[Rfam]
RNA sequence: AACGACCGGCCAGGUACUCCCAUGUGCCCGGCCCACAAGUGGAGGCUCCGAUCUCCCACCUGACUGCCCUCCGGGGCGGCGGGUCAUCCGGUCAGACGGUAGCCAUCGUUCCGUACGGACGAUGGAGCCGUCCGAUGUGCGCCCCGCGGUUGACCGCGGCGGUGUUCCGGUUGUUCAUGGAGCCCCGCCUGUGUCCCGUCCGGGGCAUUUUUC
Dot-bracket structure: ...((((((...(..............).(((((.((.((((((........)).)))).)).((((((....)))))).)))))..)))))).(((((...((((((((.......))))))))..)))))........(((((((((.....((((((((.(((((..........))))).))))).)))..)))..)))))).......
RNA: Streptomyces RNA 1601